[Rfam]
RNA: Small nucleolar RNA snoR53Y
Organism: Ananas comosus
RNA sequence: GUUCCCAGUGAUGUUCAAUUUGACCAUGCUAAUACUGAUAUCCUUUGAUGAUAUGCUAUUAAUUGUUCUGAGGGAAUC
Numbered sequence: 001g002u003u004c005c006c007a008g009u010g011a012u013g014u015u016c017a018a019u020u021u022g023a024c025c026a027u028g029c030u031a032a033u034a035c036u037g038a039u040a041u042c043c044u045u046u047g048a049u050g051a052u053a054u055g056c057u058a059u060u061a062a063u064u065g066u067u068c069u070g071a072g073g074g075a076a077u078c
Base pairs, nucleotide, nucleotide: 001077002076003075004074005073